[Rfam]
RNA sequence: UGGAAGAAUCUGUUAAGCUCAGGAGGGAUAGCGCCCUAAGGGCUCUUUUUAUUUGGUUUUUGACUAUCAGUGGCGCUAUCCAUCCUGAGUUUUACUGGUUCUUCUU
Numbered sequence: 001u002g003g004a005a006g007a008a009u010c011u012g013u014u015a016a017g018c019u020c021a022g023g024a025g026g027g028a029u030a031g032c033g034c035c036c037u038a039a040g041g042g043c044u045c046u047u048u049u050u051a052u053u054u055g056g057u058u059u060u061u062g063a064c065u066a067u068c069a070g071u072g073g074c075g076c077u078a079u080c081c082a083u084c085c086u087g088a089g090u091u092u093u094a095c096u097g098g099u100u101c102u103u104c105u106u
Stems, first nucleotide, its partner, number of pairs: 010097001016091009026081010
RNA: MIR390 microRNA precursor family